[Rfam]
RNA sequence: ACACGAGAGAGGAGGUGGUCCAAAGUUGUAUAUCGACAGGACUCGUGAGGUGGCUGUCCGCUAGCGGAUGGCACGUGGAGGACUUUGAGCAGCGCUACAGCUGAGCCACCUUCGGCUCAUCGCCUGCUCCACGUGAUGCCUGAUAGCGAAUACCAGGCAGUCACCGUGCCCCCGGGGUUUCCGAGCACCAGUCCGGCUCGGACUCAAGCGUUUGACGGCGCUUGAGAGGCACCCCGGGGGUUCCUUCAU
Numbered sequence: 001a002c003a004c005g006a007g008a009g010a011g012g013a014g015g016u017g018g019u020c021c022a023a024a025g026u027u028g029u030a031u032a033u034c035g036a037c038a039g040g041a042c043u044c045g046u047g048a049g050g051u052g053g054c055u056g057u058c059c060g061c062u063a064g065c066g067g068a069u070g071g072c073a074c075g076u077g078g079a080g081g082a083c084u085u086u087g088a089g090c091a092g093c094g095c096u097a098c099a100g101c102u103g104a105g106c107c108a109c110c111u112u113c114g115g116c117u118c119a120u121c122g123c124c125u126g127c128u129c130c131a132c133g134u135g136a137u138g139c140c141u142g143a144u145a146g147c148g149a150a151u152a153c154c155a156g157g158c159a160g161u162c163a164c165c166g167u168g169c170c171c172c173c174g175g176g177g178u179u180u181c182c183g184a185g186c187a188c189c190a191g192u193c194c195g196g197c198u199c200g201g202a203c204u205c206a207a208g209c210g211u212u213u214g215a216c217g218g219c220g221c222u223u224g225a226g227a228g229g230c231a232c233c234c235c236g237g238g239g240g241u242u243c244c245u246u247c248a249u
Stems, first nucleotide, its partner, number of pairs: 014058006059148005065142001067140001069138002072135009166243001168241011181201006
Rfam assigns this 249-nucleotide sequence from Amycolatopsis mediterranei to the family "Actinobacteria sRNA Ms_IGR-5". The source organism's lineage runs through Bacteria, Bacillati, Actinomycetota, Pseudonocardiales and Amycolatopsis mediterranei. A search with the family's covariance model found it, with a score of 87 bits.